The family of this 49-nucleotide sequence from Sphingopyxis alaskensis is "chrB-b RNA". Pairs were carried over by alignment from the consensus structure, which is taken from published work. It is one of the family's seed sequences.
RNA sequence: CCGGGGCCGCGCAACCUCCCGGUAAAGCGUCCCGGCGCUCAAGCGUUGC
Dot-bracket structure: ((((((....[[[[[.))))))...(((((....))))).....]]]]]